[Rfam]
RNA: gut-2 RNA
RNA sequence: UACCUACAACUAAAUGGAGUUGUAGAAGAGCUAACGGAGCUAUAGGA
Numbered sequence: 001u002a003c004c005u006a007c008a009a010c011u012a013a014a015u016g017g018a019g020u021u022g023u024a025g026a027a028g029a030g031c032u033a034a035c036g037g038a039g040c041u042a043u044a045g046g047a
Stems, first nucleotide, its partner, number of pairs: 004025008029041004